[Rfam]
RNA: Alphaproteobacteria transfer-messenger RNA
RNA sequence: UCACUUUUCAUUCAUGCGCAAUGGCCUAUAUAGGAAGGUGCCGGAGCAAUCCGGCUAUGGUGAUAAAGUAUGCCGUGUAAUAGACGCAGCGGACGCGGGGGCAGUACCCGCCGGCUCCACCAAAAGCCCUGAGCGAUCAGGGUCUCUGACGGGGCCGAACCAGGAUCGACGUGUGUUCAAAGACGGUGUUUUUGCCCGGCCCGAGUAAGCCGUGAAACUGUUCAAAACCUACAAGUGCCAACGAUAACGAGGCUCUUGCUCUUGCUGCGUAAUUGAGGGGCUCACGCCCUGACAUUACACAAAUAGAACGCGGUUGGACCCACCGGGCAACAGAAGGGAUUCCA
Numbered sequence: 001u002c003a004c005u006u007u008u009c010a011u012u013c014a015u016g017c018g019c020a021a022u023g024g025c026c027u028a029u030a031u032a033g034g035a036a037g038g039u040g041c042c043g044g045a046g047c048a049a050u051c052c053g054g055c056u057a058u059g060g061u062g063a064u065a066a067a068g069u070a071u072g073c074c075g076u077g078u079a080a081u082a083g084a085c086g087c088a089g090c091g092g093a094c095g096c097g098g099g100g101g102c103a104g105u106a107c108c109c110g111c112c113g114g115c116u117c118c119a120c121c122a123a124a125a126g127c128c129c130u131g132a133g134c135g136a137u138c139a140g141g142g143u144c145u146c147u148g149a150c151g152g153g154g155c156c157g158a159a160c161c162a163g164g165a166u167c168g169a170c171g172u173g174u175g176u177u178c179a180a181a182g183a184c185g186g187u188g189u190u191u192u193u194g195c196c197c198g199g200c201c202c203g204a205g206u207a208a209g210c211c212g213u214g215a216a217a218c219u220g221u222u223c224a225a226a227a228c229c230u231a232c233a234a235g236u237g238c239c240a241a242c243g244a245u246a247a248c249g250a251g252g253c254u255c256u257u258g259c260u261c262u263u264g265c266u267g268c269g270u271a272a273u274u275g276a277g278g279g280g281c282u283c284a285c286g287c288c289c290u291g292a293c294a295u296u297a298c299a300c301a302a303a304u305a306g307a308a309c310g311c312g313g314u315u316g317g318a319c320c321c322a323c324c325g326g327g328c329a330a331c332a333g334a335a336g337g338g339a340u341u342c343c344a
Stems, first nucleotide, its partner, number of pairs: 040055005059196005070189007085175003089172003095111005112157007197212004203223002208219001311325004316343003321338001